Rfam assigns this 83-nucleotide sequence from Caenorhabditis latens to the family "SmY spliceosomal RNA". It is annotated as a spliceosomal small nuclear RNA. It scores 50 bits against the family's covariance model. The base pairs follow the family's consensus structure, which is taken from published work. Lineage of the source: Eukaryota > Opisthokonta > Protostomia > Chromadorea > Caenorhabditis. The family has 61 seed sequences and 408 matches in Rfam 15.1. On this family, see MacMorris et al., RNA 2007: "A novel family of C. elegans snRNPs contains proteins associated with trans-splicing".
RNA sequence: CAUCGAACUACAAUAUCUUCAAGGCCUUUCCUAAGACCUCAAGUACAAUUUUUGGGAAAUCCUGUCGAUUUUUAGGCAUGGGG
Numbered sequence: 001c002a003u004c005g006a007a008c009u010a011c012a013a014u015a016u017c018u019u020c021a022a023g024g025c026c027u028u029u030c031c032u033a034a035g036a037c038c039u040c041a042a043g044u045a046c047a048a049u050u051u052u053u054g055g056g057a058a059a060u061c062c063u064g065u066c067g068a069u070u071u072u073u074a075g076g077c078a079u080g081g082g083g
Base pairs, nucleotide, nucleotide: 022039023038024037026035027034028033060083061082062081063080064079065078